[Rfam]
RNA: Small nucleolar RNA SNORA9
Organism: Urocolius indicus
RNA sequence: CAGCAAGGCUUCCAGCGUGGGGGGGCCUGCUGUGGCCCCCACCAUUCCUACAGCACUUGCCAGAGCAAGCCUGGGACGGUUUGAGGCCUCUCCCUGCCCUCACCAAGGGGGGGGUUAUAGACAUCCCAGACACCC
Numbered sequence: 001c002a003g004c005a006a007g008g009c010u011u012c013c014a015g016c017g018u019g020g021g022g023g024g025g026c027c028u029g030c031u032g033u034g035g036c037c038c039c040c041a042c043c044a045u046u047c048c049u050a051c052a053g054c055a056c057u058u059g060c061c062a063g064a065g066c067a068a069g070c071c072u073g074g075g076a077c078g079g080u081u082u083g084a085g086g087c088c089u090c091u092c093c094c095u096g097c098c099c100u101c102a103c104c105a106a107g108g109g110g111g112g113g114g115u116u117a118u119a120g121a122c123a124u125c126c127c128a129g130a131c132a133c134c135c
Stems, first nucleotide, its partner, number of pairs: 003060005018044003023038005072128005087114006094107002096104001